[Rfam]
RNA sequence: GGAUGAAUCCUUGGAGAGACUCUUCACGAGCACCGAAGGCGAAAGUUAUAUGGAGAAACCAUAUGGCGAAACGCUCAGGUAAAAGGACAGGGGACAGAUA
Numbered sequence: 001g002g003a004u005g006a007a008u009c010c011u012u013g014g015a016g017a018g019a020c021u022c023u024u025c026a027c028g029a030g031c032a033c034c035g036a037a038g039g040c041g042a043a044a045g046u047u048a049u050a051u052g053g054a055g056a057a058a059c060c061a062u063a064u065g066g067c068g069a070a071a072c073g074c075u076c077a078g079g080u081a082a083a084a085g086g087a088c089a090g091g092g093g094a095c096a097g098a099u100a
Stems, first nucleotide, its partner, number of pairs: 008093006020030003032080003035076002039074003045067009
This 100-nucleotide RNA sequence from Clostridium aminobutyricum belongs to the Rfam family "Glycine riboswitch aptamer".
Its family is annotated with glycine biosynthetic process in the Gene Ontology.